[Rfam]
RNA: Bacterial RNase P class A
Organism: Pseudomethylobacillus aquaticus
RNA sequence: GAAGCUGGCCAGACAGUCGCUGCCCGAGUGAUCGGGGAGAGGAAAGUCCGGGCUCCAUAGAGCGGGAUGACGGCUAACGGCCGUACGCCGUGAGGCGAGGAACAGGGCCACAGAGACGAGUAAAUCGCAGUUCGCUGCGAUGGAUGUGAAACGCGGUAACCUCCAUCCGGAGCAAGACCAAAUAGGCUGGCAUUUCACUUCGGUGAUAAGGCGUGGCUCGCGCUGCCAGCGGGUAGGUUGCUUGAGUGCAUGAGCAAUUGUGCGCCUAGAGGAAUGACUGUCGCUCGCAGUGAUGCGAGGCACAGAACCCGGCUUACCGGCCAGCUUCUUUC
Numbered sequence: 001g002a003a004g005c006u007g008g009c010c011a012g013a014c015a016g017u018c019g020c021u022g023c024c025c026g027a028g029u030g031a032u033c034g035g036g037g038a039g040a041g042g043a044a045a046g047u048c049c050g051g052g053c054u055c056c057a058u059a060g061a062g063c064g065g066g067a068u069g070a071c072g073g074c075u076a077a078c079g080g081c082c083g084u085a086c087g088c089c090g091u092g093a094g095g096c097g098a099g100g101a102a103c104a105g106g107g108c109c110a111c112a113g114a115g116a117c118g119a120g121u122a123a124a125u126c127g128c129a130g131u132u133c134g135c136u137g138c139g140a141u142g143g144a145u146g147u148g149a150a151a152c153g154c155g156g157u158a159a160c161c162u163c164c165a166u167c168c169g170g171a172g173c174a175a176g177a178c179c180a181a182a183u184a185g186g187c188u189g190g191c192a193u194u195u196c197a198c199u200u201c202g203g204u205g206a207u208a209a210g211g212c213g214u215g216g217c218u219c220g221c222g223c224u225g226c227c228a229g230c231g232g233g234u235a236g237g238u239u240g241c242u243u244g245a246g247u248g249c250a251u252g253a254g255c256a257a258u259u260g261u262g263c264g265c266c267u268a269g270a271g272g273a274a275u276g277a278c279u280g281u282c283g284c285u286c287g288c289a290g291u292g293a294u295g296c297g298a299g300g301c302a303c304a305g306a307a308c309c310c311g312g313c314u315u316a317c318c319g320g321c322c323a324g325c326u327u328c329u330u331u332c
Base pairs, nucleotide, nucleotide: 001328002327003326004325005324006323007322008321009320010319012282013281014280015279016278017277018276020039021038023036024035025034026033027032044315045314046313048312049311050310051309052308053172054171055170056169060219061218062217063216065168066167067166068165069164070084071083072082073081074080086097087096088095089094100163101162105161106160107157108156109155122145124141125140126139127138128137129136130135176239177238178237179236186230187229188228189227190226191225210224211223212222213221214220246265247264248263249262250261251260252259253258